[Rfam]
The record is a 53-nucleotide RNA, which matches "Plastid-atpF group II-D1 intron" in Rfam. Rfam's curators write: Plastid atpF is a non-coding RNA (ncRNA) recognised in plastids. It has been reported in the intron group II-D1 region of ATP synthase (atpF) genes.

RNA sequence: AAUCAUUUUCUCGAUAUAGAGCACUCGUGUCGAUAAAAUGAUUUGAACUACUU
Numbered sequence: 001a002a003u004c005a006u007u008u009u010c011u012c013g014a015u016a017u018a019g020a021g022c023a024c025u026c027g028u029g030u031c032g033a034u035a036a037a038a039u040g041a042u043u044u045g046a047a048c049u050a051c052u053u
Stems, first nucleotide, its partner, number of pairs: 011033007
It is one of the family's seed sequences.
The family has 49 seed sequences and 1,372 matches in Rfam 15.1.